[Rfam]
RNA sequence: GGGGUUAUAGUUAAAUUUGGUGAAACGACUGCGUUGCAUGCAUUUAAUAUGAGUUCAAGUCUCAUUAACUCCA
Dot-bracket structure: (((((((..(((...........))).(.(((.......))).)....(((((.......)))))))))))).